Shown here is a 125-nucleotide sequence from Streptomyces sp. SID7982, a member of the family "Streptomyces RNA 3920".
By type it is a small RNA.

[Rfam]
Nucleotides: 125
Base pairs, nucleotide, nucleotide: 001014003012004011005010015051016050018048021032022031023030033045034044035043036042058075060073062071063070064069077082085121086120087119088118089117090116091115092114093113094112095111096110097109099106
Number, partner (000 for none) and nucleotide at each position: 001014g002000a003012u004011a005010g006000g007000u008000c009000g010005c011004u012003g013000c014001c015051g016050c017000c018048a019000c020000a021032g022031u023030g024000a025000u026000u027000g028000g029000a030023c031022a032021c033045u034044g035043a036042c037000g038000c039000a040000g041000g042036g043035u044034c045033a046000a047000c048018u049000a050016g051015c052000c053000u054000u055000g056000a057000u058075g059000a060073g061000g062071u063070g064069g065000c066000u067000c068000c069064u070063c071062g072000g073060u074000a075058c076000g077082g078000a079000g080000c081000c082077c083000a084000g085121a086120a087119c088118g089117g090116c091115c092114c093113g094112a095111g096110c097109c098000a099106c100000g101000a102000g103000g104000g105000g106099g107000g108000a109097g110096g111095c112094u113093c114092g115091g116090g117089c118088c119087g120086u121085u122000c123000c124000c125000a

Source information
A reference for the family is Vockenhuber et al. (2011), "Deep sequencing-based identification of small non-coding RNAs in Streptomyces coelicolor", RNA Biol. The base pairs follow the family's consensus structure. The source organism's lineage runs through Bacteria, Actinomycetota, Actinomycetes, Streptomycetaceae and Streptomyces. It scores 95 bits against the family's covariance model.